[Rfam]
Rfam assigns this 155-nucleotide RNA sequence from Ruoffia halotolerans to the family "Lysine riboswitch aptamer". The family's consensus secondary structure is taken from published work. About the family: Riboswitches are metabolite binding domains within certain messenger RNAs that serve as precision sensors for their corresponding targets. Allosteric rearrangement of mRNA structure is mediated by ligand binding, and this results in modulation of gene expression. It scores 60 bits against the family's covariance model.
RNA sequence: CAAUACAGUAUUGAGGCCGCUUGUAAUAUCAGUAAUCAGAAAUGAUGAAAGGAUUGCUAGCCGAAAUGUCAAAUUGAUGUUGGGGAUAGAUUGAAUAAGUCUAUCACUGUCUUGUAGGGUUGCCCAAACUCUACGUAGGUGAGCGUGCUGUGUUG
Numbered sequence: 001c002a003a004u005a006c007a008g009u010a011u012u013g014a015g016g017c018c019g020c021u022u023g024u025a026a027u028a029u030c031a032g033u034a035a036u037c038a039g040a041a042a043u044g045a046u047g048a049a050a051g052g053a054u055u056g057c058u059a060g061c062c063g064a065a066a067u068g069u070c071a072a073a074u075u076g077a078u079g080u081u082g083g084g085g086a087u088a089g090a091u092u093g094a095a096u097a098a099g100u101c102u103a104u105c106a107c108u109g110u111c112u113u114g115u116a117g118g119g120u121u122g123c124c125c126a127a128a129c130u131c132u133a134c135g136u137a138g139g140u141g142a143g144c145g146u147g148c149u150g151u152g153u154u155g
Stems, first nucleotide, its partner, number of pairs: 006150005013144001019061003023057005035046004065081007082108002085105008110139003